Annotation
A member of the RNA family "Drosophila small cajal body-specific RNA PsiU2-38.40.4" from Drosophila persimilis, 137 nucleotides long.
RNA sequence: AUGGCAGCAAAAAGAAAGUGUUCAAAUCGAUUAAGCUUAAUUGAAUGCUGAUACAAUGCUGCCAGAAUAAUCUUUUAAGCCAAGAACAGUUCAGUUUAGAGCAGUCUAUAAACUGAUCUACACGUGGCCUAACAAUA
Dot-bracket structure: ...((((((.......(((((((((...((......))..))))))))).......))))))................((((.....((.((((((((..........)))))))).)).....)))).........

Notes
On this family, see Deryusheva and Gall, RNA 2013: "Novel small Cajal-body-specific RNAs identified in Drosophila: probing guide RNA function". NCBI's taxonomy places the organism under Eukaryota, Pancrustacea, Eumetabola, Muscomorpha, Sophophora. The family's consensus secondary structure was predicted with RNAfold.